[Rfam]
RNA: mir-95 microRNA precursor family
RNA sequence: CACAUUGUAGGCCUCAUUAAAUGUUUGUUGAAUGAAAAUCUGAAUCAUCAACAGACAUUAAUUGGGUGCCUGCUCUGUG
Number, nucleotide and partner (000 for none) at each position: 001c079002a078003c077004a076005u000006u000007g073008u072009a071010g070011g069012c068013c066014u065015c064016a063017u000018u061019a000020a059021a058022u057023g056024u055025u054026u053027g052028u051029u050030g049031a048032a000033u047034g046035a045036a000037a000038a000039u000040c000041u000042g000043a000044a000045u035046c034047a033048u031049c030050a029051a028052c027053a026054g025055a024056c023057a022058u021059u020060a000061a018062u000063u016064g015065g014066g013067u000068g012069c011070c010071u009072g008073c007074u000075c000076u004077g003078u002079g001